[Rfam]
RNA sequence: AGUGCUACUAUGACGAUAAAUCAUAAUUCAUCUGAGGUUACUAGCCUCUGAAUGAUACAAAUAUAGCAAUGUCUUUCGCUCCUAUCUGACUGUAGUUUA
Numbered sequence: 001a002g003u004g005c006u007a008c009u010a011u012g013a014c015g016a017u018a019a020a021u022c023a024u025a026a027u028u029c030a031u032c033u034g035a036g037g038u039u040a041c042u043a044g045c046c047u048c049u050g051a052a053u054g055a056u057a058c059a060a061a062u063a064u065a066g067c068a069a070u071g072u073c074u075u076u077c078g079c080u081c082c083u084a085u086c087u088g089a090c091u092g093u094a095g096u097u098u099a
Base pairs, nucleotide, nucleotide: 004096005095006094007093008092
This 99-nucleotide RNA from Botrytis cinerea belongs to the Rfam family "Small nucleolar RNA snR60/Z15/Z230/Z193/J17". By type it is a C/D-box small nucleolar RNA. The family has 23 seed sequences and 3,592 matches in Rfam 15.1. Its Rfam clan is "SNORD77 clan". It scores 49 bits against the family's covariance model.